[Rfam]
Makes More Granules Regulator RNA (mmgR): an 82-nucleotide RNA from Phenylobacterium soli. The source organism's lineage runs through Bacteria, Pseudomonadati, Pseudomonadota, Caulobacteraceae and Phenylobacterium. SuhB later renamed mmgR (makes more granules regulator) was a putative non-coding RNA found multiple times in the Agrobacterium tumefaciens genome and related alpha-proteobacteria. Other non-coding RNAs uncovered in the same analysis include: speF, ybhL, metA, and serC.Several studies inSinorhizobium meliloti showed that suhB element is indeed a non-coding RNA:firstly it was detected on Northern blot and called Sm8RNA, secondly in an RNAseq study referred to as SmelC689.The mutant phenotype's (strain lacking the small RNA) cytoplasm contains higher content of polyhydroxybutyrate (PBH)storage granules than wild type strain. The sRNA is required to limit the PBH intracellular accumulation when the nitrogen-fixing Sinorhizobium meliloti is under condition of surplus carbon in relation to nitrogen. It has been renamed to mmgR. Further study confirmed that mmgR fine-tunes the regulation of PBH storage.Northern blot confirmed the expression of the sRNA in other rhizobia species.
RNA sequence: AGGGUCCGCCCAUCCUGGGCGUUUCCUCCCUAAUGACUUCCCCAGCCGGGUUCGAAAGAACCCGGCUGUUUUUUUGCUCCGC
Numbered sequence: 001a002g003g004g005u006c007c008g009c010c011c012a013u014c015c016u017g018g019g020c021g022u023u024u025c026c027u028c029c030c031u032a033a034u035g036a037c038u039u040c041c042c043c044a045g046c047c048g049g050g051u052u053c054g055a056a057a058g059a060a061c062c063c064g065g066c067u068g069u070u071u072u073u074u075u076g077c078u079c080c081g082c
Base pairs, nucleotide, nucleotide: 008020009019010018011017044067045066046065047064048063049062050061051060052059